Shown here is a 77-nucleotide sequence from Hemibagrus wyckioides, a member of the family "Small nucleolar RNA SNORD83". It scores 62 bits against the family's covariance model. The literature on the family includes a 2000 paper in Nucleic Acids Res by Jady and Kiss, "Characterisation of the U83 and U84 small nucleolar RNAs: two novel 2'-O-ribose methylation guide RNAs that lack complementarities to ribosomal RNAs". The family's consensus secondary structure was predicted with PFOLD.
RNA sequence: GCCACAUGAUGUGAUGGAGAUUGCAUUAGCACUCUGUGCAAAGAUGACCUCUUAUCUAUCACCCAAGACUGAUGGCU
Numbered sequence: 001g002c003c004a005c006a007u008g009a010u011g012u013g014a015u016g017g018a019g020a021u022u023g024c025a026u027u028a029g030c031a032c033u034c035u036g037u038g039c040a041a042a043g044a045u046g047a048c049c050u051c052u053u054a055u056c057u058a059u060c061a062c063c064c065a066a067g068a069c070u071g072a073u074g075g076c077u
Stems, first nucleotide, its partner, number of pairs: 001076004029039004
The family has 7 seed sequences and 1,393 matches in Rfam 15.1.